[Rfam]
RNA: c-di-AMP riboswitch aptamer (ydaO/yuaA leader)
RNA sequence: UCGCGUCAAGCGCCGUUGGCAGGAGCGGGGGACCCAAGGUUUGCGCCGGGGCCCGUGCCGGCCGGGCAGCGAGCUGCUGCCCGCCCGCGGGAACCGGCUAGGGGUGAAGUCGCACAGCUGAAGCGUGCGGCCGGGCAAAUUCGUCACCGGCUCGUCCGAGUCGGGGGCACCCCAUCGGCCCGAACCCGACAGCUCACCUCGCAGGCGUCGGUGAGGGGAUCA
Numbered sequence: 001u002c003g004c005g006u007c008a009a010g011c012g013c014c015g016u017u018g019g020c021a022g023g024a025g026c027g028g029g030g031g032a033c034c035c036a037a038g039g040u041u042u043g044c045g046c047c048g049g050g051g052c053c054c055g056u057g058c059c060g061g062c063c064g065g066g067c068a069g070c071g072a073g074c075u076g077c078u079g080c081c082c083g084c085c086c087g088c089g090g091g092a093a094c095c096g097g098c099u100a101g102g103g104g105u106g107a108a109g110u111c112g113c114a115c116a117g118c119u120g121a122a123g124c125g126u127g128c129g130g131c132c133g134g135g136c137a138a139a140u141u142c143g144u145c146a147c148c149g150g151c152u153c154g155u156c157c158g159a160g161u162c163g164g165g166g167g168c169a170c171c172c173c174a175u176c177g178g179c180c181c182g183a184a185c186c187c188g189a190c191a192g193c194u195c196a197c198c199u200c201g202c203a204g205g206c207g208u209c210g211g212u213g214a215g216g217g218g219a220u221c222a
Base pairs, nucleotide, nucleotide: 005206006205007204013022025202026201027200028199029198030197035101102187103186104185110130111129112128113127114126115125133181134180135179136178